[Rfam]
Annotation: A member of the RNA family "Glycine riboswitch aptamer" from Boseongicola aestuarii, 87 nucleotides long. The pairing is the family consensus, mapped onto this sequence.
RNA sequence: AAGGUCUGUGCAGGAGAGAUCGGUUCAUCCCGGCGCCGAAGGAGCAACCCCCCGGAAACUCUCAGGCAAAUGAACUGCACUAUGGAC
Number, nucleotide and partner (000 for none) at each position: 001a000002a000003g000004g000005u000006c000007u000008g080009u079010g078011c077012a076013g075014g000015a000016g000017a000018g000019a000020u033021c032022g031023g030024u000025u000026c000027a000028u000029c000030c023031c022032g021033g020034c000035g067036c066037c065038g063039a062040a000041g000042g061043a060044g059045c000046a000047a000048c055049c054050c000051c000052c000053c000054g049055g048056a000057a000058a000059c044060u043061c042062u039063c038064a000065g037066g036067c035068a000069a000070a000071u000072g000073a000074a000075c013076u012077g011078c010079a009080c008081u000082a000083u000084g000085g000086a000087c000
It scores 63 bits against the family's covariance model.
Taxonomically the source falls in Boseongicola (Bacteria, Alphaproteobacteria, Rhodobacterales, Paracoccaceae).